[Rfam]
RNA: Singlet oxygen resistance RNA X
RNA sequence: AUCCCGUUUCUACGUCCGGGUCAUGGCGUGGAACCUCCCUGUUGGACUGGCCGGGCCCUGCGCCCGGCCUUUUUU
Numbered sequence: 001a002u003c004c005c006g007u008u009u010c011u012a013c014g015u016c017c018g019g020g021u022c023a024u025g026g027c028g029u030g031g032a033a034c035c036u037c038c039c040u041g042u043u044g045g046a047c048u049g050g051c052c053g054g055g056c057c058c059u060g061c062g063c064c065c066g067g068c069c070u071u072u073u074u075u
Base pairs, nucleotide, nucleotide: 010031011030012029013028014027015026016025049069050068051067052066053065054064055063056062